[Rfam]
RNA sequence: UGCGAUGAGUCGAGAUAGGUCAGACAACUUUAAGUUGUUUCGCUGCGGUGACUAGUGACCAAUUUCACCGGCACACUUUGUACCUACCGUAUUGUAGGCGUGUGAGUCAAUUUGGGUGUGUGAGCCACU
Numbered sequence: 001u002g003c004g005a006u007g008a009g010u011c012g013a014g015a016u017a018g019g020u021c022a023g024a025c026a027a028c029u030u031u032a033a034g035u036u037g038u039u040u041c042g043c044u045g046c047g048g049u050g051a052c053u054a055g056u057g058a059c060c061a062a063u064u065u066c067a068c069c070g071g072c073a074c075a076c077u078u079u080g081u082a083c084c085u086a087c088c089g090u091a092u093u094g095u096a097g098g099c100g101u102g103u104g105a106g107u108c109a110a111u112u113u114g115g116g117u118g119u120g121u122g123a124g125c126c127a128c129u
Base pairs, nucleotide, nucleotide: 018060019059020058021057022056023039024038025037026036027035028034040051041050042049043048072104073103074102075101076100083098084097085096086095087094115129116128117127118126119124
Rfam assigns this 129-nucleotide RNA sequence from Pediococcus stilesii to the family "Enterococcus sRNA 68 (Lacto-3 RNA)". On this family, see Innocenti et al., RNA 2015: "Whole-genome mapping of 5' RNA ends in bacteria by tagged sequencing: a comprehensive view in Enterococcus faecalis". Rfam classes the family as a small RNA. Taxonomically the source falls in Pediococcus (Bacteria, Bacillati, Bacillota, Bacilli).